[Rfam]
The record is a 330-nucleotide RNA from Gulo gulo, which matches "7SK RNA" in Rfam. By type it is a non-coding RNA gene. The base pairs follow the family's consensus structure, which is taken from published work. It scores 312 bits against the family's covariance model. NCBI's taxonomy places the organism under Eukaryota, Craniata, Euteleostomi, Musteloidea, Gulo. About the family: 7SK was discovered as an abundant small nuclear RNA in the mid-70s but a possible function has only recently been suggested. Two independent studies have found that 7SK RNA binds the CDK9/cyclin T complex (known as elongation factor P-TEFb). P-TEFb activates transcription by phosphorylating the C-terminal domain of RNA polymerase II. This process is negatively regulated by the 7SK RNP. The secondary structure of 7SK RNA shown here was proposed by Wasserman and Steitz on the basis of chemical modification and enzymatic cleavage experiments. This family contains a number of annotated pseudogenes and 7SK derived repeats.

RNA sequence: GGAUGUGAGGAUGAUCUAGAUGUGACAUCUGUCACCCCAUUGAUCACCAGGGUUGAUUCGGCUGAUGUGGCUGGCUAGGCAGGUGCCCCUUCCUCCCUCACUGCUCCAUGUGGGUCCCUCCCAAAGCUGCGUGCUCUGUCCAAGAGGAUGACCUUCCUGGAUAGAGGAAGACCAUUCUUUGGUCAAGGGCAUACGAGUAGCUUCACUCCCUUGCUAGAACCUCUAAGUGUGCUCUCAAGGUCCUCUUGUAGGAGAUUGUAGGGUAGUCAAGCUUCCAAGACUUCAGACACAUCCAAAUGAGGCACUGCAUGUGGUAGUCUGCCUUUCUUU
Number, nucleotide and partner (000 for none) at each position: 001g107002g106003a105004u000005g101006u100007g099008a098009g097010g096011a000012u000013g092014a091015u000016c000017u000018a090019g089020a000021u000022g000023u000024g087025a000026c085027a084028u083029c082030u081031g080032u079033c078034a000035c074036c073037c070038c069039a068040u000041u000042g000043a066044u065045c064046a000047c061048c060049a000050g000051g000052g000053u000054u000055g000056a000057u000058u000059c000060g048061g047062c000063u000064g045065a044066u043067g000068u039069g038070g037071c000072u000073g036074g035075c000076u000077a000078g033079g032080c031081a030082g029083g028084u027085g026086c000087c024088c000089c019090u018091u014092c013093c000094u000095c000096c010097c009098u008099c007100a006101c005102u000103g000104c000105u003106c002107c001108a000109u000110g000111u000112g000113g000114g000115u170116c000117c167118c166119u165120c164121c138122c000123a000124a135125a000126g134127c133128u000129g000130c000131g000132u000133g127134c126135u124136c000137u000138g121139u161140c160141c159142a000143a000144g000145a000146g157147g156148a155149u000150g000151a000152c000153c000154u000155u148156c147157c146158u000159g141160g140161a139162u000163a000164g120165a119166g118167g117168a000169a000170g115171a000172c000173c000174a000175u000176u000177c000178u000179u000180u000181g000182g000183u000184c000185a000186a000187g000188g000189g000190c000191a000192u000193a000194c000195g000196a000197g000198u000199a000200g272201c271202u270203u000204c000205a000206c266207u265208c000209c263210c262211u261212u260213g259214c258215u000216a000217g000218a000219a000220c000221c254222u253223c252224u251225a000226a000227g249228u248229g247230u000231g245232c000233u000234c000235u000236c000237a000238a000239g000240g000241u000242c000243c000244u000245c231246u000247u229248g228249u227250a000251g224252g223253a222254g221255a000256u000257u000258g214259u213260a212261g211262g210263g209264u000265a207266g206267u000268c000269a000270a202271g201272c200273u000274u000275c000276c000277a000278a000279g000280a000281c000282u000283u000284c000285a000286g000287a000288c000289a000290c000291a000292u000293c000294c000295a330296a329297a328298u000299g325300a324301g323302g322303c321304a318305c317306u316307g315308c314309a000310u000311g000312u000313g000314g308315u307316a306317g305318u304319c000320u000321g303322c302323c301324u300325u299326u000327c000328u297329u296330u295